[Rfam]
RNA sequence: UUCGAACAUGUUUCUGGCGCAUCGCUUCAUACCUCCCUGUUGGACUUGGGCCGAGCUUCGUGCUCGGCCUUUUUU
Dot-bracket structure: .......(((...(.........)...)))..................((((((((.....))))))))......
The family of this 75-nucleotide sequence from Sulfitobacter sp. THAF37 is "Singlet oxygen resistance RNA X".
The base pairs follow the family's consensus structure.
For this family Rfam cites "Photooxidative stress-induced and abundant small RNAs in Rhodobacter sphaeroides" (Berghoff et al., Mol Microbiol, 2009).
The organism belongs to Sulfitobacter, within Bacteria.
SorX (RSs2461)like SorY is a singlet oxygen induced sRNA that counteracts oxidative stress by targeting mRNA for a transporter in Rhodobacter. It also has an impact on resistance against organic hydroperoxides.
Rfam 15.1 lists 528 matches to the family in 356 species.